The family of this 87-nucleotide RNA sequence from Dorcoceras hygrometricum is "mir-160 microRNA precursor family". Taxonomically the source falls in Dorcoceras (Eukaryota, Spermatophyta, Mesangiospermae, asterids). A search with the family's covariance model found it, with a score of 61 bits. The family's consensus secondary structure was predicted with PFOLD.

[Rfam]
RNA sequence: AUAUGCCUGGCUCCCUGUAUGCCACAUGCCGACCCGAUUCUGACAAGGAUCGAGUGAGACGGGUGGCAUACCAGGAGCCAAGCAUGC
Numbered sequence: 001a002u003a004u005g006c007c008u009g010g011c012u013c014c015c016u017g018u019a020u021g022c023c024a025c026a027u028g029c030c031g032a033c034c035c036g037a038u039u040c041u042g043a044c045a046a047g048g049a050u051c052g053a054g055u056g057a058g059a060c061g062g063g064u065g066g067c068a069u070a071c072c073a074g075g076a077g078c079c080a081a082g083c084a085u086g087c
Stems, first nucleotide, its partner, number of pairs: 002086005008080007017071008027061002